Yersinia sRNA 276: a 195-nucleotide sequence from Brenneria rubrifaciens. On this family, see Nuss et al., PLoS Genet 2015: "Transcriptomic profiling of Yersinia pseudotuberculosis reveals reprogramming of the Crp regulon by temperature and uncovers Crp as a master regulator of small RNAs".
[Rfam]
RNA sequence: GACGGACAUCAGGGAUUCAUUCUGCGAGCCCUGACCCACGGCCAGAUAAGCGUUCAUGCCCAGCUCUUUCAUCUGCUGCUCGCCGAUGACGCGGGUCGUGAUGUUCUGGCUGUAGGUAUCCGCCAACUGACGGGCCUGCGAAGCCAGAUAAGCGGCAUUACAGAUAUUCGGCGGCAUAUUGCCGAGAUCUUUCGC
Number, nucleotide and partner (000 for none) at each position: 001g000002a000003c000004g000005g189006a188007c000008a000009u000010c000011a000012g032013g031014g030015a000016u028017u027018c026019a000020u024021u000022c000023u000024g020025c000026g018027a017028g016029c000030c014031c013032u012033g043034a000035c041036c000037c000038a000039c000040g000041g035042c000043c033044a000045g000046a000047u000048a000049a000050g059051c058052g000053u000054u000055c000056a000057u000058g051059c050060c000061c000062a077063g076064c075065u000066c000067u000068u000069u000070c000071a000072u000073c000074u000075g064076c063077u062078g135079c134080u133081c132082g131083c000084c129085g128086a000087u126088g000089a000090c000091g123092c122093g121094g120095g119096u118097c000098g000099u112100g111101a000102u109103g000104u000105u000106c000107u000108g000109g102110c000111u100112g099113u000114a000115g000116g000117u000118a096119u095120c094121c093122g092123c091124c000125a000126a087127c000128u085129g084130a000131c082132g081133g080134g079135c078136c163137u162138g161139c000140g159141a158142a000143g156144c155145c154146a000147g000148a000149u000150a000151a000152g000153c000154g145155g144156c143157a000158u141159u140160a000161c138162a137163g136164a000165u000166a000167u186168u185169c184170g183171g182172c181173g000174g000175c000176a000177u000178a000179u000180u000181g172182c171183c170184g169185a168186g167187a000188u006189c005190u000191u000192u000193c000194g000195c000